[Rfam]
Source information:
A member of the RNA family "c-di-GMP-I riboswitch aptamer" from Vibrio aquimaris, 87 nucleotides long. Taxonomically the source falls in Vibrio (Bacteria, Pseudomonadota, Gammaproteobacteria, Vibrionaceae). Pairs were carried over by alignment from the consensus structure, which is taken from published work. The match comes from Rfam's covariance-model search (74 bits).
RNA sequence: CCACGAACAGGGCAAACCAUCUCGAAAGAGUGGGACGCAAAGCUUCCGGCCUGACUCAGGGAACUGAAAGGUAGCGGAGUUGCCGAU
Numbered sequence: 001c002c003a004c005g006a007a008c009a010g011g012g013c014a015a016a017c018c019a020u021c022u023c024g025a026a027a028g029a030g031u032g033g034g035a036c037g038c039a040a041a042g043c044u045u046c047c048g049g050c051c052u053g054a055c056u057c058a059g060g061g062a063a064c065u066g067a068a069a070g071g072u073a074g075c076g077g078a079g080u081u082g083c084c085g086a087u
Stems, first nucleotide, its partner, number of pairs: 012038002017033004022029002041081004046077003049072003056067004